[Rfam]
RNA sequence: UUAAGGAAACUGACAGCUUUCAAUAGAAAGUUUGACUAACUAAUCUUCUGUAACGCUAUUAUGAGGAUUGCCCUUUGAGGUUCAUAGCAAUAGGUCGCCCUAUGGUUGGUCACAUGAUUUCUGCAA
Dot-bracket structure: ((..(((((......((((((....))))))..(((((((.(((((((......[[[[[...)))))))..............]]]]].(((((....))))).)))))))......)))))..))
Numbered sequence: 001u002u003a004a005g006g007a008a009a010c011u012g013a014c015a016g017c018u019u020u021c022a023a024u025a026g027a028a029a030g031u032u033u034g035a036c037u038a039a040c041u042a043a044u045c046u047u048c049u050g051u052a053a054c055g056c057u058a059u060u061a062u063g064a065g066g067a068u069u070g071c072c073c074u075u076u077g078a079g080g081u082u083c084a085u086a087g088c089a090a091u092a093g094g095u096c097g098c099c100c101u102a103u104g105g106u107u108g109g110u111c112a113c114a115u116g117a118u119u120u121c122u123g124c125a126a
Stems, first nucleotide, its partner, number of pairs: 001126002005122005016031006034111007042069007055088005090103005